[Rfam]
RNA sequence: GGGUCAAUGAUGAGUACUUUAUAUUGCCUUGAGGAUCGGUGAUGACAUCAAUAUCAAGAAAAAUGGCAUGAUGCUGAGGCCC
Numbered sequence: 001g002g003g004u005c006a007a008u009g010a011u012g013a014g015u016a017c018u019u020u021a022u023a024u025u026g027c028c029u030u031g032a033g034g035a036u037c038g039g040u041g042a043u044g045a046c047a048u049c050a051a052u053a054u055c056a057a058g059a060a061a062a063a064u065g066g067c068a069u070g071a072u073g074c075u076g077a078g079g080c081c082c
Stems, first nucleotide, its partner, number of pairs: 001082004005076002008073002

Shown here is an 82-nucleotide RNA from Carlito syrichta, a member of the family "Small nucleolar RNA SNORD115". The organism belongs to Carlito, within Eukaryota. It scores 67 bits against the family's covariance model. Gene Ontology terms of the family: RNA processing and nucleolus. A reference for the family is Cavaille et al. (2000), "Identification of brain-specific and imprinted small nucleolar RNA genes exhibiting an unusual genomic organization", Proc Natl Acad Sci U S A. The family has 32 seed sequences and 3,387 matches in Rfam 15.1. Rfam classes the family as a C/D-box small nucleolar RNA.